Shown here is an 86-nucleotide RNA sequence from Pseudescherichia vulneris, a member of the family "Peptidase-S11 RNA". The base pairs follow the family's consensus structure, which is taken from published work. The family's RNA type in Rfam is cis-regulatory element. Lineage of the source: Bacteria > Pseudomonadati > Gammaproteobacteria > Pseudescherichia > Pseudescherichia vulneris.

RNA sequence: GCUAUCAUGCGUUGGCCAGCUUUUGCCAUUUUCUGCCUGCAAAAGCGGUGUGCGUCAUCACGCGCGUGAAUAAUCACCAGAAGUCU
Dot-bracket structure: ..............(((.((((((((............)))))))))))((((((....)))))).....................
Numbered sequence: 001g002c003u004a005u006c007a008u009g010c011g012u013u014g015g016c017c018a019g020c021u022u023u024u025g026c027c028a029u030u031u032u033c034u035g036c037c038u039g040c041a042a043a044a045g046c047g048g049u050g051u052g053c054g055u056c057a058u059c060a061c062g063c064g065c066g067u068g069a070a071u072a073a074u075c076a077c078c079a080g081a082a083g084u085c086u
Stems, first nucleotide, its partner, number of pairs: 015049003019046008050065006